Rfam assigns this 74-nucleotide RNA from Pararhodospirillum photometricum to the family "Makes More Granules Regulator RNA (mmgR)". Taxonomically the source falls in Pararhodospirillum photometricum (Bacteria, Pseudomonadota, Alphaproteobacteria, Pararhodospirillum). The pairing is the family consensus, mapped onto this sequence. Its Rfam clan is "suhB sRNA clan". The family's RNA type in Rfam is small RNA.
[Rfam]
RNA sequence: CCAUGUUGGCUUUCUUGGACGUUUCCUCCCUAAACUCGGGCCGCGCCGCUUGCGCGGCCUUUUUUUUGCCUGGA
Dot-bracket structure: .......(.((.....)).).................(((((((((.....)))))))))..............